[Rfam]
This 248-nucleotide RNA from Penicillium cinerascens belongs to the Rfam family "Small nucleolar RNA snR191".
Gene Ontology terms of the family: RNA processing and nucleolus.
RNA sequence: UUCCAUCGCUAAGUCAAGGCUUCUUCCUACGACUAUACGUCGUCUUGUUUCUCCAUGGAGGUCUGUCUGUUACAGCUUUGGUAGAUCAACAAUGUCCCGCACCGAAUCUCUUUCUGAGGCUAGGUUGACCGGCCUUCGUCUUGAAGGCCUGUCGCAAGGGUCAUAUGUGUUUUGUUUUUGAGUUGAGUUCUGCCUCUGCCUUUUUCGGUGGCUCAGUGGUAGAACUCUUAGUAACAUCCCACACAUUC
Numbered sequence: 001u002u003c004c005a006u007c008g009c010u011a012a013g014u015c016a017a018g019g020c021u022u023c024u025u026c027c028u029a030c031g032a033c034u035a036u037a038c039g040u041c042g043u044c045u046u047g048u049u050u051c052u053c054c055a056u057g058g059a060g061g062u063c064u065g066u067c068u069g070u071u072a073c074a075g076c077u078u079u080g081g082u083a084g085a086u087c088a089a090c091a092a093u094g095u096c097c098c099g100c101a102c103c104g105a106a107u108c109u110c111u112u113u114c115u116g117a118g119g120c121u122a123g124g125u126u127g128a129c130c131g132g133c134c135u136u137c138g139u140c141u142u143g144a145a146g147g148c149c150u151g152u153c154g155c156a157a158g159g160g161u162c163a164u165a166u167g168u169g170u171u172u173u174g175u176u177u178u179u180g181a182g183u184u185g186a187g188u189u190c191u192g193c194c195u196c197u198g199c200c201u202u203u204u205u206c207g208g209u210g211g212c213u214c215a216g217u218g219g220u221a222g223a224a225c226u227c228u229u230a231g232u233a234a235c236a237u238c239c240c241a242c243a244c245a246u247u248c
Stems, first nucleotide, its partner, number of pairs: 003081003017068004023061005029043005092164003096160002101125003105121001107119004127153002132148007167242003173236003185227004191221004196211005